This 408-nucleotide RNA from Paenibacillus apis belongs to the Rfam family "Bacterial RNase P class A". Rfam classes the family as a ribozyme. The base pairs follow the family's consensus structure, which is taken from published work. It scores 272 bits against the family's covariance model. Lineage of the source: Bacteria > Bacillati > Bacillota > Caryophanales > Paenibacillus.
RNA sequence: AAAGUUUGACAGACAAUCGCCGGCGGCCUUGUUGCCGCGGGAGGAAAGUCCGGGCUCCAUAGGGCAGGGUGCUGGAUAACGUCCAGUCGGCGCGAGCCGAAGGAUAGUGCCACAGAAAUGGACCGCCGAUGGCCGCAAGCAAUUGCGGAUCAGGCAAGGAUGGAACCGAGGUGUAAGAGACCCCGAGGAACGCUGGUGACUUCGUUCCUGGUAAACCCCAUCUGGAGCAAGACCUAAUGGGACGCAGCUUCCUUCGUGAAGCAGCCUUUGCCCGAGGCGCGUCCGGGUUGGUCGCUGGAGCCGUCCAGUAAUGUACGGCCUAGAUAGAUGAUUGUCACUCCAAGCGGGAGGGUUGUUCCCGUGAUUACCGCCAAGAGUACAGAACCCGGCUUACGGCAAACUUUCUUC
Numbered sequence: 001a002a003a004g005u006u007u008g009a010c011a012g013a014c015a016a017u018c019g020c021c022g023g024c025g026g027c028c029u030u031g032u033u034g035c036c037g038c039g040g041g042a043g044g045a046a047a048g049u050c051c052g053g054g055c056u057c058c059a060u061a062g063g064g065c066a067g068g069g070u071g072c073u074g075g076a077u078a079a080c081g082u083c084c085a086g087u088c089g090g091c092g093c094g095a096g097c098c099g100a101a102g103g104a105u106a107g108u109g110c111c112a113c114a115g116a117a118a119u120g121g122a123c124c125g126c127c128g129a130u131g132g133c134c135g136c137a138a139g140c141a142a143u144u145g146c147g148g149a150u151c152a153g154g155c156a157a158g159g160a161u162g163g164a165a166c167c168g169a170g171g172u173g174u175a176a177g178a179g180a181c182c183c184c185g186a187g188g189a190a191c192g193c194u195g196g197u198g199a200c201u202u203c204g205u206u207c208c209u210g211g212u213a214a215a216c217c218c219c220a221u222c223u224g225g226a227g228c229a230a231g232a233c234c235u236a237a238u239g240g241g242a243c244g245c246a247g248c249u250u251c252c253u254u255c256g257u258g259a260a261g262c263a264g265c266c267u268u269u270g271c272c273c274g275a276g277g278c279g280c281g282u283c284c285g286g287g288u289u290g291g292u293c294g295c296u297g298g299a300g301c302c303g304u305c306c307a308g309u310a311a312u313g314u315a316c317g318g319c320c321u322a323g324a325u326a327g328a329u330g331a332u333u334g335u336c337a338c339u340c341c342a343a344g345c346g347g348g349a350g351g352g353u354u355g356u357u358c359c360c361g362u363g364a365u366u367a368c369c370g371c372c373a374a375g376a377g378u379a380c381a382g383a384a385c386c387c388g389g390c391u392u393a394c395g396g397c398a399a400a401c402u403u404u405c406u407u408c
Stems, first nucleotide, its partner, number of pairs: 001404008010395001012336007020041002023038005046392003050389005055227004062273004067223005072086005087101001088099004102218002107216002109212003123159002125155003130152003134148001167185002170182003187208006195200001231293004240284006264278005300319005306313002